[Rfam]
RNA sequence: CCCACAAGCGGUACGUCCACUGGCCCCGGACGAUCCAGUGCCGCCUGAUGGGACAAGUAAAAAUGAACAGCUGCCUACUGGAUAAGGAAGCUGCAGACCGGAACGGAGAAAUCUCCGUCGGGACUGUGGUUGGAUUUCUAUACCCAUUUUGCAGCUGACCA
Numbered sequence: 001c002c003c004a005c006a007a008g009c010g011g012u013a014c015g016u017c018c019a020c021u022g023g024c025c026c027c028g029g030a031c032g033a034u035c036c037a038g039u040g041c042c043g044c045c046u047g048a049u050g051g052g053a054c055a056a057g058u059a060a061a062a063a064u065g066a067a068c069a070g071c072u073g074c075c076u077a078c079u080g081g082a083u084a085a086g087g088a089a090g091c092u093g094c095a096g097a098c099c100g101g102a103a104c105g106g107a108g109a110a111a112u113c114u115c116c117g118u119c120g121g122g123a124c125u126g127u128g129g130u131u132g133g134a135u136u137u138c139u140a141u142a143c144c145c146a147u148u149u150u151g152c153a154g155c156u157g158a159c160c161a
Base pairs, nucleotide, nucleotide: 001051002050005047008044009043010042011041012040013039014032015031016030017029018028033083034082035081036080037079038078068157069156070155071154072153073152074151090130091129092128093127094126103118104117105116106115107114